Actinobacteria sRNA Ms_IGR-5: a 177-nucleotide RNA sequence from Mycolicibacterium chitae.
The match comes from Rfam's covariance-model search (162 bits).
A reference for the family is Li et al. (2013), "Identification of small RNAs in Mycobacterium smegmatis using heterologous Hfq", RNA.
[Rfam]
RNA sequence: ACACAGGGAAGGAGGUGGUCCGACAAAUUGAGUGACUUAUGGACAUGUGAGGUGGCUGUCCGCUAGCAGCGCCAGGCGAGGAAUCACCUGCGACGCGCGGGCGAAUUCCAGCAGCCACCCGGCCCCCGAGCCCCCAGUUCGUCCGACUGUGGACCCAUGGCUCGGGGGCCGCCCCAU
Numbered sequence: 001a002c003a004c005a006g007g008g009a010a011g012g013a014g015g016u017g018g019u020c021c022g023a024c025a026a027a028u029u030g031a032g033u034g035a036c037u038u039a040u041g042g043a044c045a046u047g048u049g050a051g052g053u054g055g056c057u058g059u060c061c062g063c064u065a066g067c068a069g070c071g072c073c074a075g076g077c078g079a080g081g082a083a084u085c086a087c088c089u090g091c092g093a094c095g096c097g098c099g100g101g102c103g104a105a106u107u108c109c110a111g112c113a114g115c116c117a118c119c120c121g122g123c124c125c126c127c128g129a130g131c132c133c134c135c136a137g138u139u140c141g142u143c144c145g146a147c148u149g150u151g152g153a154c155c156c157a158u159g160g161c162u163c164g165g166g167g168g169c170c171g172c173c174c175c176a177u
Base pairs, nucleotide, nucleotide: 014060015059016058017057018056019055061103062102063101064100066098067097069096070095071094074089075088076087120171121170122169123168124167125166126165127164128163129162130161131160132159133152134151135149136148137147138146